[Rfam]
RNA: mir-726 microRNA precursor family
Organism: Hymenochirus boettgeri
Nucleotides: 091
Stems, first nucleotide, its partner, number of pairs: 003089006010082002013079004019074003024069005031062006038056002
Number, partner (000 for none) and nucleotide at each position: 001000g002000g003089g004088g005087g006086u007085g008084c009000u010082u011081g012000u013079c014078u015077g016076g017000a018000a019074u020073u021072c022000c023000g024069c025068u026067a027066g028065u029000u030000c031062u032061g033060a034059a035058c036057u037000a038056u039055u040000c041000a042000a043000c044000g045000u046000u047000u048000c049000u050000a051000a052000g053000c054000a055039a056038a057036a058035g059034u060033u061032c062031a063000c064000u065028a066027c067026u068025a069024g070000a071000a072021g073020a074019a075000c076016u077015c078014g079013g080000c081011c082010a083000c084008g085007c086006a087005c088004c089003c090000c091000a